[Rfam]
RNA: Enterobacterial sRNA STnc240
Organism: Pantoea sp. M_5
RNA sequence: CCGCGGUUGGGCAGAAUACGCGGCCUGCAAAAUCAGACGAUAACCGACGCUUUAAGCGCCGGUUAUUUUUUUGC
Numbered sequence: 001c002c003g004c005g006g007u008u009g010g011g012c013a014g015a016a017u018a019c020g021c022g023g024c025c026u027g028c029a030a031a032a033u034c035a036g037a038c039g040a041u042a043a044c045c046g047a048c049g050c051u052u053u054a055a056g057c058g059c060c061g062g063u064u065a066u067u068u069u070u071u072u073g074c
Stems, first nucleotide, its partner, number of pairs: 011021002041065006048058002